[Rfam]
RNA sequence: GCGGAUGGCCGGGCGGCCGCGGUUCCCCUCGCGCAGGCGGGCGGGGGCCGAGGAAGGUCCGGGCUCCACGGAGGCACGGCGCCGGGUAACGCCCGGCCGGGGAAACCCGAGGGAAAGCGCCACAGAAAACAGACCGCCCGGCGCGCCUUUCGGGGCCGCCGCGGCAAGGGUGAAACGGCGGUUUAAGAGACCACCGCGUCCCUGGCGACAGGGACGGCACGGCAAGCCCCGCCGGGAGCAAGAUCAAGUUGGGUCGCGCGCGCUUCGAUGCGCAGGGGGUCGCCUUCGCCCCCGCGGCCGUGGUGGAUCGCGAGAACCCGUGCGCGAGCGCGGGUCCAGAUGAAUGGUCGCCCAGGGGUCUUCGGACCCUGGACAAAACCCGGCCUACAGGCCGUCCGCCGCC
Numbered sequence: 001g002c003g004g005a006u007g008g009c010c011g012g013g014c015g016g017c018c019g020c021g022g023u024u025c026c027c028c029u030c031g032c033g034c035a036g037g038c039g040g041g042c043g044g045g046g047g048c049c050g051a052g053g054a055a056g057g058u059c060c061g062g063g064c065u066c067c068a069c070g071g072a073g074g075c076a077c078g079g080c081g082c083c084g085g086g087u088a089a090c091g092c093c094c095g096g097c098c099g100g101g102g103a104a105a106c107c108c109g110a111g112g113g114a115a116a117g118c119g120c121c122a123c124a125g126a127a128a129a130c131a132g133a134c135c136g137c138c139c140g141g142c143g144c145g146c147c148u149u150u151c152g153g154g155g156c157c158g159c160c161g162c163g164g165c166a167a168g169g170g171u172g173a174a175a176c177g178g179c180g181g182u183u184u185a186a187g188a189g190a191c192c193a194c195c196g197c198g199u200c201c202c203u204g205g206c207g208a209c210a211g212g213g214a215c216g217g218c219a220c221g222g223c224a225a226g227c228c229c230c231g232c233c234g235g236g237a238g239c240a241a242g243a244u245c246a247a248g249u250u251g252g253g254u255c256g257c258g259c260g261c262g263c264u265u266c267g268a269u270g271c272g273c274a275g276g277g278g279g280u281c282g283c284c285u286u287c288g289c290c291c292c293c294g295c296g297g298c299c300g301u302g303g304u305g306g307a308u309c310g311c312g313a314g315a316a317c318c319c320g321u322g323c324g325c326g327a328g329c330g331c332g333g334g335u336c337c338a339g340a341u342g343a344a345u346g347g348u349c350g351c352c353c354a355g356g357g358g359u360c361u362u363c364g365g366a367c368c369c370u371g372g373a374c375a376a377a378a379c380c381c382g383g384c385c386u387a388c389a390g391g392c393c394g395u396c397c398g399c400c401g402c403c
Stems, first nucleotide, its partner, number of pairs: 001399010011388001012352007020050008055386003059383005064238004072285004077234005082096005097111001098109004112229002117227002119223003134169002136165003141160001177195002180192003196218001197216008242309004252299006276292005316335008
Dot-bracket structure: ((((((((((((((((((.((((((((...............))))))))....[[[.[[[[[((((....[[[[.((((((((((.....)))))(((((....)))).)((...(((((............(((((..(..................)..)))..)).......((.(((.......))).))(((((((((....)))))))).)..)))..)))))))))))))...((((......((((((..................(((((.]]]]..))))).))))))......))))......((((((((....))))))))..........)))))))..........................]]]]]]]].).))))))))))....